[Rfam]
RNA: SAM-I/IV (S-adenosyl methionine) riboswitch aptamer
Organism: Roseibium limicola
RNA sequence: CGCCCACAUCAAGAGAAGGGCUGGCGCCCUCGCCAACCUGCCUUAACCGGGCAAGGUGGUUCCUGCCGGGGAUGCGGCUGCGAGAUCUGCGACAAGCAGUGACGUGGCAACCAAGCGGUCAGAC
Numbered sequence: 001c002g003c004c005c006a007c008a009u010c011a012a013g014a015g016a017a018g019g020g021c022u023g024g025c026g027c028c029c030u031c032g033c034c035a036a037c038c039u040g041c042c043u044u045a046a047c048c049g050g051g052c053a054a055g056g057u058g059g060u061u062c063c064u065g066c067c068g069g070g071g072a073u074g075c076g077g078c079u080g081c082g083a084g085a086u087c088u089g090c091g092a093c094a095a096g097c098a099g100u101g102a103c104g105u106g107g108c109a110a111c112c113a114a115g116c117g118g119u120c121a122g123a124c
Base pairs, nucleotide, nucleotide: 007074008073009072010071015031017030018029019028020027021026032060033059034058037056038055039054040052041051042050045119047117077108078107079106080105081104082103